[Rfam]
RNA sequence: UAGAGUGCAGUGAUGAAGCAAAUUGUUUUGUGGACUAGAGUUUCUGAUCUGGGUUCUUCUCCCAGAACUUGAUUACUAACCCUUGGCUGUCUGAGCACUUUU
Numbered sequence: 001u002a003g004a005g006u007g008c009a010g011u012g013a014u015g016a017a018g019c020a021a022a023u024u025g026u027u028u029u030g031u032g033g034a035c036u037a038g039a040g041u042u043u044c045u046g047a048u049c050u051g052g053g054u055u056c057u058u059c060u061c062c063c064a065g066a067a068c069u070u071g072a073u074u075a076c077u078a079a080c081c082c083u084u085g086g087c088u089g090u091c092u093g094a095g096c097a098c099u100u101u102u
Stems, first nucleotide, its partner, number of pairs: 002101007043072002048067001049065005
The record is a 102-nucleotide RNA sequence from Salix viminalis, which matches "Small nucleolar RNA Z157/R69/R10" in Rfam. Its Rfam clan is "SNORD52 clan". NCBI's taxonomy places the organism under Eukaryota, Euphyllophyta, Gunneridae, fabids, Salix. It scores 83 bits against the family's covariance model. Gene Ontology terms of the family: nucleolus and RNA processing. On this family, see Chen et al., Nucleic Acids Res 2003: "The high diversity of snoRNAs in plants: identification and comparative study of 120 snoRNA genes from Oryza sativa".